[Rfam]
RNA sequence: GGUCAAUGAUGUGUUGGCAUGUAUUAUCUGAAUUCGCUGAUGUGUCAUAACACUUUAGCUCUAGAAUUACGCUGAGACCUU
Numbered sequence: 001g002g003u004c005a006a007u008g009a010u011g012u013g014u015u016g017g018c019a020u021g022u023a024u025u026a027u028c029u030g031a032a033u034u035c036g037c038u039g040a041u042g043u044g045u046c047a048u049a050a051c052a053c054u055u056u057a058g059c060u061c062u063a064g065a066a067u068u069a070c071g072c073u074g075a076g077a078c079c080u081u
Stems, first nucleotide, its partner, number of pairs: 001079004
Source information
Rfam assigns this 81-nucleotide sequence to the family "Small nucleolar RNA SNORD45". The literature on the family includes a 2002 paper in Mol Cell Biol by Galardi et al., "Purified box C/D snoRNPs are able to reproduce site-specific 2'-O-methylation of target RNA in vitro". Rfam's curators put it in the seed alignment.